This 375-nucleotide part of an RNA from Thioalkalivibrio paradoxus belongs to the Rfam family "Bacterial large subunit ribosomal RNA". The family's consensus secondary structure is taken from published work.
RNA sequence: GAUAAGAUGGGUGAAAAACCCAUCCGCCGAAAGCCCAAGGUUUCCUGCGCAACGUUAAUCGGCGCAGGGUUAGUCGGCCCCUAAGGCGAGGCAGAAAUGCGUAGUCGAUGGGAAACAGGUUAAUAUUCCUGUACCUCGUGUUAAUGCGAUGGGGGGACGAAGAAGGCUAGGUCAUCCGGCUGUUGGUGUCCGGUUCAAGCAUGUAGGGAGUGUCCUUAGGCAAAUCCGGGGACACAAUCCUGAGAUGUGAUGACGAGCUCCCACGGGAGCGAAGUGACUGAUGCCCUGCUUCCAGGAAAAGCCUCUAAGCUUCAGUUGACACGAGACCGUACCCGAAACCGACACAGGUGGGCAGGGUGAGAAUCCCAAGGCGCU
Number, nucleotide and partner (000 for none) at each position: 001g000002a000003u000004a000005a000006g024007a023008u022009g021010g020011g019012u000013g000014a000015a000016a000017a000018a000019c011020c010021c009022a008023u007024c006025c373026g372027c371028c370029g000030a000031a000032a000033g353034c352035c351036c350037a000038a000039g333040g332041u000042u000043u000044c068045c067046u066047g065048c064049g063050c000051a000052a000053c061054g060055u000056u000057a000058a000059u000060c054061g053062g000063c049064g048065c047066a046067g045068g044069g000070u000071u000072a000073g000074u000075c329076g328077g327078c000079c000080c111081c110082u000083a000084a000085g106086g105087c104088g000089a102090g000091g100092c099093a098094g000095a000096a000097a000098u093099g092100c091101g000102u089103a000104g087105u086106c085107g000108a000109u000110g081111g080112g000113a000114a000115a132116c131117a130118g129119g128120u000121u000122a000123a000124u000125a000126u000127u000128c119129c118130u117131g116132u115133a000134c000135c325136u324137c323138g322139u321140g320141u319142u318143a317144a316145u315146g310147c309148g000149a000150u000151g305152g304153g303154g302155g000156g000157a000158c000159g292160a291161a290162g289163a000164a000165g285166g284167c283168u000169a000170g279171g278172u277173c276174a275175u000176c193177c192178g191179g190180c000181u000182g000183u000184u000185g000186g000187u000188g000189u000190c179191c178192g177193g176194u000195u253196c252197a000198a000199g248200c247201a246202u245203g000204u000205a000206g241207g240208g239209a000210g000211u234212g233213u232214c231215c230216u229217u228218a000219g227220g226221c000222a000223a000224a000225u000226c220227c219228g217229g216230g215231g214232a213233c212234a211235c000236a000237a000238u000239c208240c207241u206242g000243a000244g000245a202246u201247g200248u199249g000250a000251u000252g196253a195254c000255g000256a000257g270258c269259u268260c267261c266262c000263a000264c000265g000266g261267g260268a259269g258270c257271g000272a000273a000274g000275u174276g173277a172278c171279u170280g000281a000282u000283g167284c166285c165286c000287u000288g000289c162290u161291u160292c159293c000294a000295g000296g000297a000298a000299a000300a000301g000302c154303c153304u152305c151306u000307a000308a000309g147310c146311u000312u000313c000314a000315g145316u144317u143318g142319a141320c140321a139322c138323g137324a136325g135326a000327c077328c076329g075330u000331a000332c040333c039334c000335g000336a000337a000338a000339c348340c347341g000342a000343c000344a000345c000346a000347g340348g339349u000350g036351g035352g034353c033354a000355g367356g366357g365358u000359g000360a000361g000362a000363a000364u000365c357366c356367c355368a000369a000370g028371g027372c026373g025374c000375u000
The family has 102 seed sequences and 51,934 matches in Rfam 15.1.